[Rfam]
RNA sequence: AUGACACUAGCAGGAGAGAUCUGAAUUUUUCAGGCGCCGAAGGAGAAAUCUCUUGAAUUCGCUUUUUCAAGGGGGGAAGCUCUCAGGCAAAAGUACUGCUAGAUGACG
Numbered sequence: 001a002u003g004a005c006a007c008u009a010g011c012a013g014g015a016g017a018g019a020u021c022u023g024a025a026u027u028u029u030u031c032a033g034g035c036g037c038c039g040a041a042g043g044a045g046a047a048a049u050c051u052c053u054u055g056a057a058u059u060c061g062c063u064u065u066u067u068c069a070a071g072g073g074g075g076g077a078a079g080c081u082c083u084c085a086g087g088c089a090a091a092a093g094u095a096c097u098g099c100u101a102g103a104u105g106a107c108g
Base pairs, nucleotide, nucleotide: 007102008101009100010099011098012097013096020034021033022032023031036088037087038086039084040083043082044081045080049075050074051073052072053071054070
The family of this 108-nucleotide RNA sequence from Desulfosporosinus orientis is "Glycine riboswitch aptamer". Rfam 15.1 lists 9,425 matches to the family in 5,228 species. The match comes from Rfam's covariance-model search (69 bits). Lineage of the source: Bacteria > Bacillota > Desulfitobacteriaceae > Desulfosporosinus > Desulfosporosinus orientis.